The record is a 95-nucleotide RNA sequence from Limosilactobacillus vaginalis, which matches "THF (Tetrahydrofolate) riboswitch aptamer" in Rfam. The base pairs follow the family's consensus structure, which is taken from published work. Rfam's curators put it in the seed alignment. The source organism's lineage runs through Bacteria, Bacillati, Bacillota, Lactobacillaceae and Limosilactobacillus vaginalis. On this family, see Huang et al., Proc Natl Acad Sci U S A 2011: "Long-range pseudoknot interactions dictate the regulatory response in the tetrahydrofolate riboswitch". Its family is annotated with tetrahydrofolate metabolic process in the Gene Ontology.
[Rfam]
RNA sequence: UGUUGGGGUAGGAAUUACCGAGUUAUUGUCCAGCGGAACGGAAUGUGAACGCUGGAAGGAAGUAUUAGCUGCUUGAUAAUUUCGCAUUCACCACA
Dot-bracket structure: (((.((....(((((((.((.((..((..((((((.....[[[[[....))))))))...(((....))))).)).))))))).]]]]].)))))